[Rfam]
RNA sequence: AAUCUGUUCGUAAGAACAACGAGAAGCAGAUCUAUUCUUACCCGAUAAGUACCAAUAGCAAUGGGA
Numbered sequence: 001a002a003u004c005u006g007u008u009c010g011u012a013a014g015a016a017c018a019a020c021g022a023g024a025a026g027c028a029g030a031u032c033u034a035u036u037c038u039u040a041c042c043c044g045a046u047a048a049g050u051a052c053c054a055a056u057a058g059c060a061a062u063g064g065g066a
Stems, first nucleotide, its partner, number of pairs: 005018005041065003050057002
Description
This 66-nucleotide RNA from Musa balbisiana belongs to the Rfam family "Plastid-clpP 5UTR RNA". The source organism's lineage runs through Eukaryota, Viridiplantae, Streptophyta, Musaceae and Musa. Rfam's curators write: Plastid clpP is a non-coding RNA (ncRNA) recognised in plastids. It was found in the prime untranslated region (5UTR) of a protease complex subunit (clpP) in plastids, suggesting a posible cis-regulatory function. On this family, see Richter et al., Plant Commun 2023: "Retrograde signaling in plants: A critical review focusing on the GUN pathway and beyond".